[Rfam]
RNA: c-di-GMP-I-GGC riboswitch aptamer
RNA sequence: CUCGUUAAGGGCAAACUCGUCGCGAGGCGGGGGCGCAAAGCUGUGGGUCUGAUAGAUGCCGAGGGGGGUGUUUAUCAGACAGCCAGGCUGCCGAAG
Numbered sequence: 001c002u003c004g005u006u007a008a009g010g011g012c013a014a015a016c017u018c019g020u021c022g023c024g025a026g027g028c029g030g031g032g033g034c035g036c037a038a039a040g041c042u043g044u045g046g047g048u049c050u051g052a053u054a055g056a057u058g059c060c061g062a063g064g065g066g067g068g069u070g071u072u073u074a075u076c077a078g079a080c081a082g083c084c085a086g087g088c089u090g091c092c093g094a095a096g
Base pairs, nucleotide, nucleotide: 001096003093004092011036012035016031017030018029019028020027021026034082039089040088041087042086044085045084046083047080048079049078050077051076052075053074054073055072056071057070058069